[Rfam]
RNA: Aggregatibacter sRNA 96
RNA sequence: AUAAUUUUAAAAAACGGUAUCCUUUUAGUACCGGUUUUUUUAAAAAACCGGUACUAAAAGGAUAUUGUUUUUUUAAAUGUUGGUCGCCAACCUUC
Numbered sequence: 001a002u003a004a005u006u007u008u009a010a011a012a013a014a015c016g017g018u019a020u021c022c023u024u025u026u027a028g029u030a031c032c033g034g035u036u037u038u039u040u041u042a043a044a045a046a047a048c049c050g051g052u053a054c055u056a057a058a059a060g061g062a063u064a065u066u067g068u069u070u071u072u073u074u075a076a077a078u079g080u081u082g083g084u085c086g087c088c089a090a091c092c093u094u095c
Stems, first nucleotide, its partner, number of pairs: 006077003010073005015067002022061004026056009035046004079091005